[Rfam]
RNA sequence: UUCACAUCGGCAGCAGUGAUUGCCAUGUCAG
Number, nucleotide and partner (000 for none) at each position: 001u031002u030003c000004a028005c027006a026007u025008c000009g024010g023011c022012a021013g020014c018015a000016g000017u000018g014019a000020u013021u012022g011023c010024c009025a007026u006027g005028u004029c000030a002031g001
Iron response element II: a 31-nucleotide RNA sequence. Rfam describes the family as follows. IRE, TFRC, SLC40A1, SDHB, SLC11A2, CDC42BPA, ACO2, ALAS2_H.SAPIENS, CDC14A, EPAS1, ALAS2, qoxD, Hao1, NDUFS1, transferrin, Aconitate. The literature on the family includes a 1989 paper in Proc Natl Acad Sci U S A by Koeller et al., "A cytosolic protein binds to structural elements within the iron regulatory region of the transferrin receptor mRNA". Its family is annotated with response to iron ion in the Gene Ontology.